[Rfam]
The family of this 87-nucleotide RNA from Paenibacillus sambharensis is "Group II catalytic intron D1-D4-1". The source organism's lineage runs through Bacteria, Bacillati, Bacillota, Caryophanales and Paenibacillus. Gene Ontology term of the family: Group II intron splicing. Group II introns are found in rRNA, tRNA and mRNA of organelles in fungi, plants and protists, and also in mRNA in bacteria.
RNA sequence: UAACCGCGGCUGAGAAGUCGCGCUGAAUCCGCAGGAGUCAGCAGAGGUCAUAGUACGGGAGUAAGGGACGCCGGAAACCGGAAGGAC
Numbered sequence: 001u002a003a004c005c006g007c008g009g010c011u012g013a014g015a016a017g018u019c020g021c022g023c024u025g026a027a028u029c030c031g032c033a034g035g036a037g038u039c040a041g042c043a044g045a046g047g048u049c050a051u052a053g054u055a056c057g058g059g060a061g062u063a064a065g066g067g068a069c070g071c072c073g074g075a076a077a078c079c080g081g082a083a084g085g086a087c
Stems, first nucleotide, its partner, number of pairs: 001025002005022007038045002047087003056080003